[Rfam]
RNA sequence: ACAACGGCCCUUUUUAGGGCCACAUAAACAUUAAGAGAGAAUAUCU
Numbered sequence: 001a002c003a004a005c006g007g008c009c010c011u012u013u014u015u016a017g018g019g020c021c022a023c024a025u026a027a028a029c030a031u032u033a034a035g036a037g038a039g040a041a042u043a044u045c046u
Base pairs, nucleotide, nucleotide: 006021007020008019009018010017011016
RNA: Histone 3' UTR stem-loop
Organism: Dreissena polymorpha